[Rfam]
RNA sequence: GAAGUGUGAACCAAGCAGCGGCGGAAGCCGUGUGAGUCUUGGAGCGGGCGACCGUAAGGGUGCCCUGCA
Numbered sequence: 001g002a003a004g005u006g007u008g009a010a011c012c013a014a015g016c017a018g019c020g021g022c023g024g025a026a027g028c029c030g031u032g033u034g035a036g037u038c039u040u041g042g043a044g045c046g047g048g049c050g051a052c053c054g055u056a057a058g059g060g061u062g063c064c065c066u067g068c069a
Stems, first nucleotide, its partner, number of pairs: 011042005018031005046065005052059002